[Rfam]
A member of the RNA family "FMN riboswitch aptamer (RFN element)" from Gottschalkia purinilytica, 117 nucleotides long. Pairs were carried over by alignment from the consensus structure, which is taken from published work.
RNA sequence: CUUAUUCUUCAGGGCAGGGUGAGAUUCCCGACCGGCGGUAAAGUCCGCGAACUGCUUUGCAGUUGACUUGGUGAGAUUCCAAGACCGACAGUAUAGUCUGGAUGGAAGAGGUUUAAG
Number, nucleotide and partner (000 for none) at each position: 001c000002u000003u115004a114005u000006u000007c111008u110009u109010c108011a000012g000013g000014g000015c000016a000017g029018g028019g027020u000021g000022a000023g000024a000025u000026u000027c019028c018029c017030g000031a097032c096033c087034g086035g048036c047037g046038g045039u000040a000041a000042a000043g085044u084045c038046c037047g036048c035049g000050a000051a063052c062053u061054g000055c000056u000057u000058u000059g000060c000061a053062g052063u051064u000065g000066a000067c083068u082069u081070g080071g079072u000073g000074a000075g000076a000077u000078u000079c071080c070081a069082a068083g067084a044085c043086c034087g033088a000089c100090a099091g098092u000093a000094u000095a000096g032097u031098c091099u090100g089101g000102a000103u000104g000105g000106a000107a000108g010109a009110g008111g007112u000113u000114u004115a003116a000117g000
The organism belongs to Gottschalkia, within Bacteria.
A search with the family's covariance model found it, with a score of 116 bits.